SAM/SAH riboswitch aptamer: a 48-nucleotide RNA sequence from Pseudorhodobacter sp. E13. Taxonomically the source falls in Pseudorhodobacter (Bacteria, Pseudomonadati, Rhodobacterales, Paracoccaceae). For this family Rfam cites "The structure of the SAM/SAH-binding riboswitch" (Weickhmann et al., Nucleic Acids Res, 2019). The base pairs follow the family's consensus structure, which is taken from published work.
Nucleotides: 048
Base pairs, nucleotide, nucleotide: 005030006029007028008027009026010025013022014021015047016046017045019044020043
Number, partner (000 for none) and nucleotide at each position: 001000a002000a003000a004000c005030c006029g007028u008027c009026a010025c011000a012000a013022c014021g015047g016046c017045u018000u019044c020043c021014u022013g023000g024000c025010g026009u027008g028007g029006c030005g031000u032000g033000u034000a035000u036000a037000a038000c039000a040000a041000a042000c043020g044019g045017a046016g047015c048000a